Saccharopolyspora sRNA 350: a 515-nucleotide RNA sequence from Actinomadura logoneensis. A reference for the family is Liu et al. (2013), "Prediction and characterization of small non-coding RNAs related to secondary metabolites in Saccharopolyspora erythraea", PLoS One.
RNA sequence: GUGACGGCCCGGACCGAGUACUCCCAGUCGUGCUCCCCGCCGCGCAGGGCCUCGGCGCCGAAGAAGUCGCCGUCGGCGAGGACGCCGAGGACGGCCUCGCCGCCGUACUCGCCCCGGCCCACCCGCUCGAGCUUGCCGUGCACGACGAGGACGACGGUGUCGACGGGCCGCCCCUCGGUGACGAUGACGUCGCCGGGCUCGUGCUCCUGCUGCUCGAACCGGCCGGCGAGCUCGCCGAGGACCUCCUCGUCCUCGUAGCCGCGCAGCGCCGGCAGCUCGCCGAGCUCCAGCGGGAUGACGCGGACGUCGGCGCCGGUCUGCAGGAACUCGAUCCGGCCGUCCCCGACGGUGUACGCCAGCCGCCGGUUGACCCGGUACGCGCCCCCCGCGCACUGCACCCACGGGAGCAGCUUGAGCAGCCAGCGGGACGAGAUGCCCUGCAUCUGGGGAACGGACUUGGUCGUCGUCGCGAGGUUCCGCGCCGCCGCCGUCCCCAGACUCCGCUGCUGCUGCUG
Numbered sequence: 001g002u003g004a005c006g007g008c009c010c011g012g013a014c015c016g017a018g019u020a021c022u023c024c025c026a027g028u029c030g031u032g033c034u035c036c037c038c039g040c041c042g043c044g045c046a047g048g049g050c051c052u053c054g055g056c057g058c059c060g061a062a063g064a065a066g067u068c069g070c071c072g073u074c075g076g077c078g079a080g081g082a083c084g085c086c087g088a089g090g091a092c093g094g095c096c097u098c099g100c101c102g103c104c105g106u107a108c109u110c111g112c113c114c115c116g117g118c119c120c121a122c123c124c125g126c127u128c129g130a131g132c133u134u135g136c137c138g139u140g141c142a143c144g145a146c147g148a149g150g151a152c153g154a155c156g157g158u159g160u161c162g163a164c165g166g167g168c169c170g171c172c173c174c175u176c177g178g179u180g181a182c183g184a185u186g187a188c189g190u191c192g193c194c195g196g197g198c199u200c201g202u203g204c205u206c207c208u209g210c211u212g213c214u215c216g217a218a219c220c221g222g223c224c225g226g227c228g229a230g231c232u233c234g235c236c237g238a239g240g241a242c243c244u245c246c247u248c249g250u251c252c253u254c255g256u257a258g259c260c261g262c263g264c265a266g267c268g269c270c271g272g273c274a275g276c277u278c279g280c281c282g283a284g285c286u287c288c289a290g291c292g293g294g295a296u297g298a299c300g301c302g303g304a305c306g307u308c309g310g311c312g313c314c315g316g317u318c319u320g321c322a323g324g325a326a327c328u329c330g331a332u333c334c335g336g337c338c339g340u341c342c343c344c345g346a347c348g349g350u351g352u353a354c355g356c357c358a359g360c361c362g363c364c365g366g367u368u369g370a371c372c373c374g375g376u377a378c379g380c381g382c383c384c385c386c387c388g389c390g391c392a393c394u395g396c397a398c399c400c401a402c403g404g405g406a407g408c409a410g411c412u413u414g415a416g417c418a419g420c421c422a423g424c425g426g427g428a429c430g431a432g433a434u435g436c437c438c439u440g441c442a443u444c445u446g447g448g449g450a451a452c453g454g455a456c457u458u459g460g461u462c463g464u465c466g467u468c469g470c471g472a473g474g475u476u477c478c479g480c481g482c483c484g485c486c487g488c489c490g491u492c493c494c495c496a497g498a499c500u501c502c503g504c505u506g507c508u509g510c511u512g513c514u515g
Stems, first nucleotide, its partner, number of pairs: 006399002010395003015390002018337002028331003032327001034325002044321003048318004054314008063242001067238003071234002075119003084112001086111004091106005125231004132225001136221001138219002140215001143212002147208001149206001153204001158201002162198001164196001166194003171186001174183001244304003249299003253295002260290001263287001265286003270279002338351004360388001362386001365383002371379001400440002403437002406434001408432001412427002416424001446485001448483002452479004456474003460470002489512002495506003